[Rfam]
Source information:
Rfam assigns this 199-nucleotide sequence from Erinaceus europaeus to the family "Small nucleolar RNA SNORA73 family". A search with the family's covariance model found it, with a score of 142 bits. Its family is annotated with nucleolus and RNA processing in the Gene Ontology. The literature on the family includes a 1996 paper in RNA by Enright et al., "5'ETS rRNA processing facilitated by four small RNAs: U14, E3, U17, and U3". The family is grouped with related families in Rfam's "snR30-U17 clan". Pairs were carried over by alignment from the consensus structure, which is taken from published work.
RNA sequence: CCGACAUAAAUACCCUGGGGUCGCUCUCCCAGGCUCUGUCCAGGUAAUGGCAGGAGCGCAGGGCUCUGCUCAGUGAUGUACAGUCCCUUUCCACAGCGUCAGAGAUGAAGUCAGGCCCGAGUCCGCACCUGCAUAUUCCUAUAGCUUCUCAGAGUCCCAUGGACCGUGACUGAGAAGACAAACCAUGCAGGAAACAGUU
Numbered sequence: 001c002c003g004a005c006a007u008a009a010a011u012a013c014c015c016u017g018g019g020g021u022c023g024c025u026c027u028c029c030c031a032g033g034c035u036c037u038g039u040c041c042a043g044g045u046a047a048u049g050g051c052a053g054g055a056g057c058g059c060a061g062g063g064c065u066c067u068g069c070u071c072a073g074u075g076a077u078g079u080a081c082a083g084u085c086c087c088u089u090u091c092c093a094c095a096g097c098g099u100c101a102g103a104g105a106u107g108a109a110g111u112c113a114g115g116c117c118c119g120a121g122u123c124c125g126c127a128c129c130u131g132c133a134u135a136u137u138c139c140u141a142u143a144g145c146u147u148c149u150c151a152g153a154g155u156c157c158c159a160u161g162g163a164c165c166g167u168g169a170c171u172g173a174g175a176a177g178a179c180a181a182a183c184c185a186u187g188c189a190g191g192a193a194a195c196a197g198u199u
Base pairs, nucleotide, nucleotide: 001102003100004099005098007096010039011038012037014033015032016031017026018025019024044094045093053086054085055084056081058079059078060077061074128191129190130189131188132187133186134185145177146176147175148174149173150172154164155163156162157161
Taxonomically the source falls in Erinaceus (Eukaryota, Opisthokonta, Tetrapoda, Mammalia).